[Rfam]
Rfam assigns this 75-nucleotide sequence from Clostridium tetani to the family "Group II catalytic intron D1-D4-1". For this family Rfam cites "The ins and outs of group II introns" (Bonen and Vogel, Trends Genet, 2001). Lineage of the source: Bacteria > Bacillati > Clostridia > Eubacteriales > Clostridium tetani.
RNA sequence: UAACCUACAUAGUGAUAUGUGGCUGAAUUAUCAGAAGUCAGCAGAGGUCAUAAGUUUUGUAGAUAUGCUGAUGAU
Numbered sequence: 001u002a003a004c005c006u007a008c009a010u011a012g013u014g015a016u017a018u019g020u021g022g023c024u025g026a027a028u029u030a031u032c033a034g035a036a037g038u039c040a041g042c043a044g045a046g047g048u049c050a051u052a053a054g055u056u057u058u059g060u061a062g063a064u065a066u067g068c069u070g071a072u073g074a075u
Base pairs, nucleotide, nucleotide: 001025002024005022006021007020008019009018010017011016038045039044047075048074049073053069054068055067057065